[Rfam]
RNA sequence: CUCUUAUCAAGAGAGGUGGAGGGAAACGGGCCCUAUGAAACCCGGCAACCGGUGCGUAUGUACAACGGUGCCAAUUCCUGCGGAAGUAAUUCUGCAAGAUAAGAG
Numbered sequence: 001c002u003c004u005u006a007u008c009a010a011g012a013g014a015g016g017u018g019g020a021g022g023g024a025a026a027c028g029g030g031c032c033c034u035a036u037g038a039a040a041c042c043c044g045g046c047a048a049c050c051g052g053u054g055c056g057u058a059u060g061u062a063c064a065a066c067g068g069u070g071c072c073a074a075u076u077c078c079u080g081c082g083g084a085a086g087u088a089a090u091u092c093u094g095c096a097a098g099a100u101a102a103g104a105g
Base pairs, nucleotide, nucleotide: 001105002104003103004102005101006100007099008098013043015042016041017040021033022032023031027080028079029078030077044072045071046070047069049068050067052063053062054061076097081094082093083092084091085090
This 105-nucleotide RNA from Clostridium argentinense belongs to the Rfam family "SAM riboswitch aptamer (S box leader)". The base pairs follow the family's consensus structure, which is taken from published work.